[Rfam]
RNA sequence: CUCUUAUCUAGAGAGGUGGAGGGACUGGCCCGAUGAAGCCCGGCAACCGACCGUGGGGAUUAAAAAACGGUUAAGGUGCCAAUUCCUGCAGAACCGGAGUUCUGACAGAUGAGAG
Numbered sequence: 001c002u003c004u005u006a007u008c009u010a011g012a013g014a015g016g017u018g019g020a021g022g023g024a025c026u027g028g029c030c031c032g033a034u035g036a037a038g039c040c041c042g043g044c045a046a047c048c049g050a051c052c053g054u055g056g057g058g059a060u061u062a063a064a065a066a067a068c069g070g071u072u073a074a075g076g077u078g079c080c081a082a083u084u085c086c087u088g089c090a091g092a093a094c095c096g097g098a099g100u101u102c103u104g105a106c107a108g109a110u111g112a113g114a115g
Base pairs, nucleotide, nucleotide: 001115002114003113004112005111006110007109008108013041015040016039017038021031022030023029025088027086028085042080043079044078045077047076048075049072050071051070052069053068054067084107089104090103091102092101093100094099

Annotation:
Shown here is a 115-nucleotide sequence from Paludifilum halophilum, a member of the family "SAM riboswitch aptamer (S box leader)". The organism belongs to Paludifilum, within Bacteria. Gene Ontology term of the family: regulation of gene expression.